[Rfam]
This 83-nucleotide sequence from Danio rerio belongs to the Rfam family "mir-194 microRNA precursor family". Rfam's curators put it in the seed alignment. A reference for the family is Lagos-Quintana et al. (2003), "New microRNAs from mouse and human", RNA.
RNA sequence: UGGUGCUGACUGCUUGUAACAGCAACUCCAUGUGGAAGGUUUGUGUCUUCCAGUGGAGCUGCUGUUGCGUGCAGAUAGUCACC
Numbered sequence: 001u002g003g004u005g006c007u008g009a010c011u012g013c014u015u016g017u018a019a020c021a022g023c024a025a026c027u028c029c030a031u032g033u034g035g036a037a038g039g040u041u042u043g044u045g046u047c048u049u050c051c052a053g054u055g056g057a058g059c060u061g062c063u064g065u066u067g068c069g070u071g072c073a074g075a076u077a078g079u080c081a082c083c
Stems, first nucleotide, its partner, number of pairs: 010074003016068008026058006033052003